[Rfam]
RNA: isrN Hfq binding RNA
RNA sequence: GGAUCACCGGUUCAUCACGUCGUUUAUUCGGUUGAUAACGAAACACCGUCCUGCUCAGCGAUAACGUCCUGCAUGCCUGGCGUAUGCUCAUCGUAAACUGCGUGGUCAGAUAGUUGACGAGCUCACGCUUUAUCGCUGGUUUU
Numbered sequence: 001g002g003a004u005c006a007c008c009g010g011u012u013c014a015u016c017a018c019g020u021c022g023u024u025u026a027u028u029c030g031g032u033u034g035a036u037a038a039c040g041a042a043a044c045a046c047c048g049u050c051c052u053g054c055u056c057a058g059c060g061a062u063a064a065c066g067u068c069c070u071g072c073a074u075g076c077c078u079g080g081c082g083u084a085u086g087c088u089c090a091u092c093g094u095a096a097a098c099u100g101c102g103u104g105g106u107c108a109g110a111u112a113g114u115u116g117a118c119g120a121g122c123u124c125a126c127g128c129u130u131u132a133u134c135g136c137u138g139g140u141u142u143u
Stems, first nucleotide, its partner, number of pairs: 025112004030107002048077001050075001052073003058067003080103004116141003120137003